RNA sequence: AAAAUCUGGAUCAAGCUGAAAAUUGAAACACUGAACAACGAGAGUUGUUCGUGAGUCUCUCAAAUUUUCGCAACACGAUGAUGAAUCGAAAGAAACAUCUUCGG
Numbered sequence: 001a002a003a004a005u006c007u008g009g010a011u012c013a014a015g016c017u018g019a020a021a022a023u024u025g026a027a028a029c030a031c032u033g034a035a036c037a038a039c040g041a042g043a044g045u046u047g048u049u050c051g052u053g054a055g056u057c058u059c060u061c062a063a064a065u066u067u068u069c070g071c072a073a074c075a076c077g078a079u080g081a082u083g084a085a086u087c088g089a090a091a092g093a094a095a096c097a098u099c100u101u102c103g104g
Stems, first nucleotide, its partner, number of pairs: 015071002018069007029053003033050007076103003080099004
RNA: Salmonella enterica Typhi npcRNA 44